[Rfam]
RNA sequence: CCUGCCACUUUUCCAGUCUGUCUUGGACCUGAGUAUAAUCCAGUGGAGGCUAAAAUGAACCCAGCUCUAGGAAACGGGGCAGCCCAAACAAUGGGCAACUGUGCAGAAAGGCCUGGAUCAAAA
Numbered sequence: 001c002c003u004g005c006c007a008c009u010u011u012u013c014c015a016g017u018c019u020g021u022c023u024u025g026g027a028c029c030u031g032a033g034u035a036u037a038a039u040c041c042a043g044u045g046g047a048g049g050c051u052a053a054a055a056u057g058a059a060c061c062c063a064g065c066u067c068u069a070g071g072a073a074a075c076g077g078g079g080c081a082g083c084c085c086a087a088a089c090a091a092u093g094g095g096c097a098a099c100u101g102u103g104c105a106g107a108a109a110g111g112c113c114u115g116g117a118u119c120a121a122a123a
Stems, first nucleotide, its partner, number of pairs: 005046005018033002020028002061116004065111002068108001071104001075101001078100002083095003

This 123-nucleotide sequence from Coregonus sp. 'balchen' belongs to the Rfam family "Small nucleolar RNA SNORA65".
Rfam links the family to the GO terms RNA processing and nucleolus.
Clan: SNORA65 clan.
The base pairs follow the family's consensus structure, which was predicted with RNAalifold.
It scores 70 bits against the family's covariance model.
About the family: U65 belongs to the H/ACA class of snoRNAs which are thought to guide the sites of modification of uridines to pseudouridines.
Rfam 15.1 lists 1,089 matches to the family in 619 species.
NCBI's taxonomy places the organism under Eukaryota, Deuterostomia, Vertebrata, Teleostei, Coregonus.